Notes:
The record is a 64-nucleotide RNA sequence from Oryctes borbonicus, which matches "mir-14 microRNA precursor family" in Rfam.
[Rfam]
RNA sequence: AACAGGGGAGAGGAUAUAGGCUUACUUUGAUUUUAACUUAGUCAGUCUUUUUCUCUCUCCUAUU
Numbered sequence: 001a002a003c004a005g006g007g008g009a010g011a012g013g014a015u016a017u018a019g020g021c022u023u024a025c026u027u028u029g030a031u032u033u034u035a036a037c038u039u040a041g042u043c044a045g046u047c048u049u050u051u052u053c054u055c056u057c058u059c060c061u062a063u064u
Stems, first nucleotide, its partner, number of pairs: 001064002004061005010055004016050001018048005024042003

Taxonomically the source falls in Oryctes (Eukaryota, Eumetazoa, Dicondylia, Dynastinae). The family's consensus secondary structure was predicted with RNAalifold. It scores 58 bits against the family's covariance model.